A member of the RNA family "Small nucleolar RNA SNORD17" from Rhabdornis inornatus, 246 nucleotides long. The family's consensus secondary structure was predicted with RNAalifold. Gene Ontology terms of the family: nucleolus and RNA processing. On this family, see Huttenhofer et al., EMBO J 2001: "RNomics: an experimental approach that identifies 201 candidates for novel, small, non-messenger RNAs in mouse". Rfam classes the family as a C/D-box small nucleolar RNA. Rfam describes the family as follows. The snoRNA HBI-43 belongs to the C/D family of snoRNAs, guiding 2'O-ribose methylation at position U3797 of the 28S rRNA. Pseudouridylation in position U3797 is predicted to be guided by the H/ACA snoRNA ACA48.

[Rfam]
RNA sequence: GUGAGGUGAUGACACAGUUUAUCCAUUCUCUGAGUGCAGUGGAGCUGCCCUCCUGCAGCACCCUGGCUCCUGUUCUAGGGUCUGGGUGCUGUGUAGCCUCCAGACAUCCUGCAGUGUCCCAGUGUCCUACUGGGGGCUGCUGUGAUGUGUGGCUGGCUGCCUGCAGGAGGGGAGCAGUGCUGGCAGGAUUGGAGCCCCUCUUUGGGGGCUCCAUCCUCACUGGGACGAGCGAUGGUGUCUGAUCAC
Numbered sequence: 001g002u003g004a005g006g007u008g009a010u011g012a013c014a015c016a017g018u019u020u021a022u023c024c025a026u027u028c029u030c031u032g033a034g035u036g037c038a039g040u041g042g043a044g045c046u047g048c049c050c051u052c053c054u055g056c057a058g059c060a061c062c063c064u065g066g067c068u069c070c071u072g073u074u075c076u077a078g079g080g081u082c083u084g085g086g087u088g089c090u091g092u093g094u095a096g097c098c099u100c101c102a103g104a105c106a107u108c109c110u111g112c113a114g115u116g117u118c119c120c121a122g123u124g125u126c127c128u129a130c131u132g133g134g135g136g137c138u139g140c141u142g143u144g145a146u147g148u149g150u151g152g153c154u155g156g157c158u159g160c161c162u163g164c165a166g167g168a169g170g171g172g173a174g175c176a177g178u179g180c181u182g183g184c185a186g187g188a189u190u191g192g193a194g195c196c197c198c199u200c201u202u203u204g205g206g207g208g209c210u211c212c213a214u215c216c217u218c219a220c221u222g223g224g225a226c227g228a229g230c231g232a233u234g235g236u237g238u239c240u241g242a243u244c245a246c
Stems, first nucleotide, its partner, number of pairs: 010245003017238002020235001024231001026229003030224002034220002039184002042181001044178005049171002051168007059088005065082001068080004093160006106146002111140005117135008186218002190213006197206002